[Rfam]
RNA sequence: ACUUGUUGUUGCUCCUCCUCCCAAAUGCGCAACAAGUAUCCCCUCCGGGAAGAAUUAUCUUCCUCAAUUUAUAGCCGGACAAAUUUGUCCGGCUCUUUUU
Numbered sequence: 001a002c003u004u005g006u007u008g009u010u011g012c013u014c015c016u017c018c019u020c021c022c023a024a025a026u027g028c029g030c031a032a033c034a035a036g037u038a039u040c041c042c043c044u045c046c047g048g049g050a051a052g053a054a055u056u057a058u059c060u061u062c063c064u065c066a067a068u069u070u071a072u073a074g075c076c077g078g079a080c081a082a083a084u085u086u087g088u089c090c091g092g093c094u095c096u097u098u099u100u
Stems, first nucleotide, its partner, number of pairs: 001037005007031003047064007073094009
Annotation: This 100-nucleotide sequence from Candidatus Tokpelaia hoelldobleri belongs to the Rfam family "Alphaproteobacterial ar15". The match comes from Rfam's covariance-model search (44 bits).